[Rfam]
RNA sequence: AAAAAAGCGAUGCCAAGGACUAGUAAUAAAGUUGAUGGAGGUUAAGAGAGGCAGUGGUUGGUGUGAACUGCUCCACAUCAUUUAUGAACUCCCCUUGAAGCUGCAAAGGUGAACUUAUGAUUAGCUUUUGCCGUCUGCCGCGUUAAGGUUUAGAGUGAACAAUAUAUGUUAAUUCGGGUGGUACCGCGGGAAUAAUAGCUUCUCGUCCCUAUU
Numbered sequence: 001a002a003a004a005a006a007g008c009g010a011u012g013c014c015a016a017g018g019a020c021u022a023g024u025a026a027u028a029a030a031g032u033u034g035a036u037g038g039a040g041g042u043u044a045a046g047a048g049a050g051g052c053a054g055u056g057g058u059u060g061g062u063g064u065g066a067a068c069u070g071c072u073c074c075a076c077a078u079c080a081u082u083u084a085u086g087a088a089c090u091c092c093c094c095u096u097g098a099a100g101c102u103g104c105a106a107a108g109g110u111g112a113a114c115u116u117a118u119g120a121u122u123a124g125c126u127u128u129u130g131c132c133g134u135c136u137g138c139c140g141c142g143u144u145a146a147g148g149u150u151u152a153g154a155g156u157g158a159a160c161a162a163u164a165u166a167u168g169u170u171a172a173u174u175c176g177g178g179u180g181g182u183a184c185c186g187c188g189g190g191a192a193u194a195a196u197a198g199c200u201u202c203u204c205g206u207c208c209c210u211a212u213u
Base pairs, nucleotide, nucleotide: 007101008100015096016095017094018093026085027084028083029082030081040074041073050072051071052070053069054068055067104130105129106128107127108126109125110124132142133141134140158170159169160168161167176209177208178207186206187205188204189203190202191201192200
Source information
Shown here is a 213-nucleotide sequence from Cerasibacillus quisquiliarum, a member of the family "T-box leader". Lineage of the source: Bacteria > Bacillota > Caryophanales > Bacillaceae > Cerasibacillus. About the family: Uncharged tRNA acts as the effector for transcription antitermination of genes in the T-box leader family. It is annotated as a cis-regulatory leader.